[Rfam]
Overview:
The family of this 62-nucleotide sequence from Paenibacillus pectinilyticus is "RAGATH-18 RNA". The source organism's lineage runs through Bacteria, Bacillati, Bacillota, Caryophanales and Paenibacillus.
RNA sequence: CCUGUGGAGUGUCAUACCAAACGAGAGUAGCUUUGGCAAAAUCGGACACAUUGAAACAGGAA
Number, nucleotide and partner (000 for none) at each position: 001c060002c059003u058004g057005u056006g000007g000008a000009g049010u048011g047012u046013c045014a000015u000016a000017c000018c000019a000020a000021a000022c044023g043024a042025g000026a000027g000028u000029a000030g037031c036032u000033u000034u000035g000036g031037c030038a000039a000040a000041a000042u024043c023044g022045g013046a012047c011048a010049c009050a000051u000052u000053g000054a000055a000056a005057c004058a003059g002060g001061a000062a000